A member of the RNA family "Small nucleolar RNA SNORD11B" from Cyclopterus lumpus, 84 nucleotides long. The family's consensus secondary structure was predicted with WAR. Taxonomically the source falls in Cyclopterus (Eukaryota, Bilateria, Deuterostomia, Cottales). The family has 37 seed sequences and 733 matches in Rfam 15.1. The family is grouped with related families in Rfam's "SNORD11 clan".
[Rfam]
RNA sequence: ACCAAGCAGUGAUUAUGACGACAUGAUGUCGCUUUCCUGAAAAAAAACUGAUGUUUUUAAGUCACUACCUCAUCUGAGCUUGUG
Numbered sequence: 001a002c003c004a005a006g007c008a009g010u011g012a013u014u015a016u017g018a019c020g021a022c023a024u025g026a027u028g029u030c031g032c033u034u035u036c037c038u039g040a041a042a043a044a045a046a047a048c049u050g051a052u053g054u055u056u057u058u059a060a061g062u063c064a065c066u067a068c069c070u071c072a073u074c075u076g077a078g079c080u081u082g083u084g
Base pairs, nucleotide, nucleotide: 003082004081005080006079007078